[Rfam]
This 113-nucleotide sequence from Kluyveromyces lactis belongs to the Rfam family "Small nucleolar RNA R38". The source organism's lineage runs through Eukaryota, Fungi, saccharomyceta, Saccharomycetes and Kluyveromyces. It is annotated as a C/D-box small nucleolar RNA. Gene Ontology terms of the family: RNA processing and nucleolus. A reference for the family is Bachellerie et al. (1995), "Antisense snoRNAs: a family of nucleolar RNAs with long complementarities to rRNA", Trends Biochem Sci. From the family's description: snoR38 is a C/D box small nucleolar RNA conserved across yeast, human, Arabidopsis and rice. It is encoded in the intron of elongation factor-1 gamma in both pombe and cerevisiae. snoR38 guides the methylation of 2'-O-ribose sites in 28S rRNA.
RNA sequence: UCUGAUAAUGAUGAGAACCUUUCAAUUAUACAGUUAUCCCUGUCUGAAUGGGUAAAAAGUUUAAUAAAACAUGGUAACACUCACGUGUCGAAAAUGUAUACUCUGACAUCAGA
Numbered sequence: 001u002c003u004g005a006u007a008a009u010g011a012u013g014a015g016a017a018c019c020u021u022u023c024a025a026u027u028a029u030a031c032a033g034u035u036a037u038c039c040c041u042g043u044c045u046g047a048a049u050g051g052g053u054a055a056a057a058a059g060u061u062u063a064a065u066a067a068a069a070c071a072u073g074g075u076a077a078c079a080c081u082c083a084c085g086u087g088u089c090g091a092a093a094a095u096g097u098a099u100a101c102u103c104u105g106a107c108a109u110c111a112g113a
Base pairs, nucleotide, nucleotide: 001113002112003111004110005109006108